[Rfam]
Rfam assigns this 80-nucleotide sequence from Microlunatus sagamiharensis to the family "Actino-pnp RNA". By type it is a cis-regulatory element. The organism belongs to Microlunatus, within Bacteria. The match comes from Rfam's covariance-model search (49 bits).
RNA sequence: CCCGGUCUCCGGUAGUGGCCUUCGGGAGCACGCGCGAGAUCCUCGCCCGACGCCCCCGCGGACCUCGAUCGAAGACCGGC
Dot-bracket structure: .((((((..((((...((.((.((((.((......................)).)))).)).))...))))..)))))).
Numbered sequence: 001c002c003c004g005g006u007c008u009c010c011g012g013u014a015g016u017g018g019c020c021u022u023c024g025g026g027a028g029c030a031c032g033c034g035c036g037a038g039a040u041c042c043u044c045g046c047c048c049g050a051c052g053c054c055c056c057c058g059c060g061g062a063c064c065u066c067g068a069u070c071g072a073a074g075a076c077c078g079g080c
Stems, first nucleotide, its partner, number of pairs: 002079006010071004017064002020061002023058004028053002